Rfam assigns this 134-nucleotide sequence from Odocoileus virginianus to the family "U8 small nucleolar RNA". The organism belongs to Odocoileus virginianus, within Eukaryota. Its family is annotated with nucleolus and RNA processing in the Gene Ontology. Rfam 15.1 lists 1,597 matches to the family in 457 species. By type it is a C/D-box small nucleolar RNA. The family's consensus secondary structure is taken from published work.

[Rfam]
RNA sequence: ACAGAAGUAAGAUAAUCCUUACCUGUCUUUUUCUUGGAGUGAAGAUUGGAACAUGAUGACUGGAGUUCCCAUGAUGUGUGAUUAACAUCUGUGCAUAAUGAAGACUUACAACACCUUGAUUGCUCCUAUCAUAU
Numbered sequence: 001a002c003a004g005a006a007g008u009a010a011g012a013u014a015a016u017c018c019u020u021a022c023c024u025g026u027c028u029u030u031u032u033c034u035u036g037g038a039g040u041g042a043a044g045a046u047u048g049g050a051a052c053a054u055g056a057u058g059a060c061u062g063g064a065g066u067u068c069c070c071a072u073g074a075u076g077u078g079u080g081a082u083u084a085a086c087a088u089c090u091g092u093g094c095a096u097a098a099u100g101a102a103g104a105c106u107u108a109c110a111a112c113a114c115c116u117u118g119a120u121u122g123c124u125c126c127u128a129u130c131a132u133a134u
Stems, first nucleotide, its partner, number of pairs: 023044002027041001029039004074090001076088003079084001096122004101117003